[Rfam]
RNA sequence: GGUGUGUUACGCUGUGGAAGACUAGUGAUUUUGUUGUUGUAAAUUCACUUUCUUGACAACAAGUCACAGUCUACCUCAGCGAGUCACGCC
Numbered sequence: 001g002g003u004g005u006g007u008u009a010c011g012c013u014g015u016g017g018a019a020g021a022c023u024a025g026u027g028a029u030u031u032u033g034u035u036g037u038u039g040u041a042a043a044u045u046c047a048c049u050u051u052c053u054u055g056a057c058a059a060c061a062a063g064u065c066a067c068a069g070u071c072u073a074c075c076u077c078a079g080c081g082a083g084u085c086a087c088g089c090c
Base pairs, nucleotide, nucleotide: 002089003088004087005086006085008083010081011080012079013078014077016075017074019072020071021070022069023068025067026066027065028064029063030062031061033060034059035058036057037056038055
RNA: mir-7 microRNA precursor family